This 181-nucleotide RNA from Carnobacterium sp. 17-4 belongs to the Rfam family "Lysine riboswitch aptamer". Rfam 15.1 lists 3,224 matches to the family in 1,923 species. About the family: Riboswitches are metabolite binding domains within certain messenger RNAs that serve as precision sensors for their corresponding targets.
RNA sequence: AGUAAGGAUAGAGGCGCGAUUUUUAAGAGUACAGUUAUUUAUGCAGGCACAAGCGGAUAACUGGAAAGGGAAAAUUGCCGAAGUGUAGAGUAUUGCCAAGUACUUUAUGCUGGGGUUAAGUAAAAUAUGCUUAACACUGUCGUAAAUUUCAAUAGGAAAUUUGCGGAGGGCUGUCAACAAA
Numbered sequence: 001a002g003u004a005a006g007g008a009u010a011g012a013g014g015c016g017c018g019a020u021u022u023u024u025a026a027g028a029g030u031a032c033a034g035u036u037a038u039u040u041a042u043g044c045a046g047g048c049a050c051a052a053g054c055g056g057a058u059a060a061c062u063g064g065a066a067a068g069g070g071a072a073a074a075u076u077g078c079c080g081a082a083g084u085g086u087a088g089a090g091u092a093u094u095g096c097c098a099a100g101u102a103c104u105u106u107a108u109g110c111u112g113g114g115g116u117u118a119a120g121u122a123a124a125a126u127a128u129g130c131u132u133a134a135c136a137c138u139g140u141c142g143u144a145a146a147u148u149u150c151a152a153u154a155g156g157a158a159a160u161u162u163g164c165g166g167a168g169g170g171c172u173g174u175c176a177a178c179a180a181a
Stems, first nucleotide, its partner, number of pairs: 007175005016078009032063008082111012112138002115135008140166009
The source organism's lineage runs through Bacteria, Bacilli, Lactobacillales, Carnobacteriaceae and Carnobacterium.